[Rfam]
RNA sequence: AACCCCUGGUUAGACCAGGGGUUCCGUAAAGCUUUAGCGAUGAGUCUUUAAAGGAAAAGAAAAACCUCCCUAGAAAAUAAUUGUUGCGGUCCGUCAACUGCAAAAUUAUGAAUAGGGAUGUUU
Numbered sequence: 001a002a003c004c005c006c007u008g009g010u011u012a013g014a015c016c017a018g019g020g021g022u023u024c025c026g027u028a029a030a031g032c033u034u035u036a037g038c039g040a041u042g043a044g045u046c047u048u049u050a051a052a053g054g055a056a057a058a059g060a061a062a063a064a065c066c067u068c069c070c071u072a073g074a075a076a077a078u079a080a081u082u083g084u085u086g087c088g089g090u091c092c093g094u095c096a097a098c099u100g101c102a103a104a105a106u107u108a109u110g111a112a113u114a115g116g117g118a119u120g121u122u123u
Base pairs, nucleotide, nucleotide: 001023002022003021004020005019006018007017008016009015010014028041031038032037062123063122064121065120067118068117069116070115071111078108079107080106082105084103085102086101087100088099089098090097

A member of the RNA family "STnc490 Hfq binding RNA" from Pseudoselenomonas ruminantium, 123 nucleotides long.
NCBI's taxonomy places the organism under Bacteria, Bacillota, Negativicutes, Selenomonadaceae, Pseudoselenomonas.